A member of the RNA family "Small nucleolar RNA SNORD56" from Sphenodon punctatus, 71 nucleotides long. Gene Ontology terms of the family: RNA processing and nucleolus. The family's consensus secondary structure was predicted with PFOLD. The family's RNA type in Rfam is C/D-box small nucleolar RNA. It scores 67 bits against the family's covariance model. The source organism's lineage runs through Eukaryota, Metazoa, Eumetazoa, Deuterostomia and Sphenodon.
RNA sequence: CUGCAGUGAUGGCAAUAUUUUUCGUCAACAGCAUUUCACCCUGUGAAUGGUGACACCUACUUUCUGAGCGG
Numbered sequence: 001c002u003g004c005a006g007u008g009a010u011g012g013c014a015a016u017a018u019u020u021u022u023c024g025u026c027a028a029c030a031g032c033a034u035u036u037c038a039c040c041c042u043g044u045g046a047a048u049g050g051u052g053a054c055a056c057c058u059a060c061u062u063u064c065u066g067a068g069c070g071g
Stems, first nucleotide, its partner, number of pairs: 002070003008026004